[Rfam]
Description
Shown here is a 65-nucleotide sequence, a member of the family "DUF3800-IX RNA". Rfam's curators write: Actinobacteria, Firmicutes (1 example), Nitrospirae, Proteobacteria, Verrucomicrobia (1 example).

RNA sequence: AAGCUCCGUGCCGAACUGUCCCCUCAGGGGGUGCGUUCCCGAAAGGGAUAGGCCGGAGCUUCUUC
Numbered sequence: 001a002a003g004c005u006c007c008g009u010g011c012c013g014a015a016c017u018g019u020c021c022c023c024u025c026a027g028g029g030g031g032u033g034c035g036u037u038c039c040c041g042a043a044a045g046g047g048a049u050a051g052g053c054c055g056g057a058g059c060u061u062c063u064u065c
Stems, first nucleotide, its partner, number of pairs: 001061008010053003017035003020031004037048004